[Rfam]
RNA sequence: UUUAAAUUUUGGGUGUAGGGUCUGAUAAACUCAUAUAGUGUUUAUGAGGUGUUGUCAUCAGCUUCUUCUUUUGUAUCAAACAUGUUUGGAGUUAAAUAACAGCACUACAUUU
Numbered sequence: 001u002u003u004a005a006a007u008u009u010u011g012g013g014u015g016u017a018g019g020g021u022c023u024g025a026u027a028a029a030c031u032c033a034u035a036u037a038g039u040g041u042u043u044a045u046g047a048g049g050u051g052u053u054g055u056c057a058u059c060a061g062c063u064u065c066u067u068c069u070u071u072u073g074u075a076u077c078a079a080a081c082a083u084g085u086u087u088g089g090a091g092u093u094a095a096a097u098a099a100c101a102g103c104a105c106u107a108c109a110u111u112u
Base pairs, nucleotide, nucleotide: 048106049105050104051103052102053101054100060093061092062091063090064089065088068084070082

The record is a 112-nucleotide sequence from Solanum lycopersicum, which matches "Small nucleolar RNA snoR97" in Rfam. The family's consensus secondary structure was predicted with WAR. On this family, see Marker et al., Curr Biol 2002: "Experimental RNomics: identification of 140 candidates for small non-messenger RNAs in the plant Arabidopsis thaliana". The organism belongs to Solanum subgen. Lycopersicon, within Eukaryota.